[Rfam]
RNA sequence: GACUUAUCCAGAGAAGUGAAGGGAUUUGGCCCAAUGAAACUUCAGCAACAGACUUAAAAGACAAAAGUACUGUGCUAACUCCAAAGAGGUAUGCCUCAAAGAUAAGUG
Numbered sequence: 001g002a003c004u005u006a007u008c009c010a011g012a013g014a015a016g017u018g019a020a021g022g023g024a025u026u027u028g029g030c031c032c033a034a035u036g037a038a039a040c041u042u043c044a045g046c047a048a049c050a051g052a053c054u055u056a057a058a059a060g061a062c063a064a065a066a067g068u069a070c071u072g073u074g075c076u077a078a079c080u081c082c083a084a085a086g087a088g089g090u091a092u093g094c095c096u097c098a099a100a101g102a103u104a105a106g107u108g
Stems, first nucleotide, its partner, number of pairs: 002107007013043005021032003026085002029081001044076004049072002051068001054065001080100001086097004
This 108-nucleotide RNA sequence from Staphylococcus haemolyticus belongs to the Rfam family "SAM riboswitch aptamer (S box leader)".
The literature on the family includes a 1998 paper in Mol Microbiol by Grundy and Henkin, "The S box regulon: a new global transcription termination control system for methionine and cysteine biosynthesis genes in gram-positive bacteria".
The base pairs follow the family's consensus structure, which is taken from published work.
About the family: The SAM riboswitch is found upstream of a number of genes which code for proteins involved in methionine or cysteine biosynthesis in Gram-positive bacteria.